RNA: S15-Flavobacteria ribosomal protein leader
Organism: Paracellulophaga algicola
Nucleotides: 068
Stems, first nucleotide, its partner, number of pairs: 014032006
Number, partner (000 for none) and nucleotide at each position: 001000u002000a003000u004000c005000u006000u007000u008000g009000c010000a011000a012000a013000c014032u015031g016030g017029u018028u019027g020000a021000a022000a023000a024000a025000u026000u027019c028018a029017a030016u031015c032014a033000u034000a035000u036000a037000c038000a039000u040000a041000a042000a043000a044000a045000u046000c047000a048000u049000u050000u051000a052000a053000a054000c055000a056000u057000a058000a059000u060000a061000u062000u063000g064000g065000a066000a067000u068000g